RNA sequence: AUUGCCCCUAGAGGCAUUGUAGAUGUGGCUGCCAUGUCACAUUUGUGUCAUUAGGUGGCAGAGAGCAGAGAGGCCUGUCUAUGCCCAGUGUUCUGGGUUCUGGUGUGAGCACCUGGAUGAUUGAUAGUCUGACACU
Numbered sequence: 001a002u003u004g005c006c007c008c009u010a011g012a013g014g015c016a017u018u019g020u021a022g023a024u025g026u027g028g029c030u031g032c033c034a035u036g037u038c039a040c041a042u043u044u045g046u047g048u049c050a051u052u053a054g055g056u057g058g059c060a061g062a063g064a065g066c067a068g069a070g071a072g073g074c075c076u077g078u079c080u081a082u083g084c085c086c087a088g089u090g091u092u093c094u095g096g097g098u099u100c101u102g103g104u105g106u107g108a109g110c111a112c113c114u115g116g117a118u119g120a121u122u123g124a125u126a127g128u129c130u131g132a133c134a135c136u
Stems, first nucleotide, its partner, number of pairs: 002061005007055005013049003019046004024041006068133001071130004076124001082119002085116004089111005
RNA: Small nucleolar RNA SNORA17
Organism: Phyllostomus discolor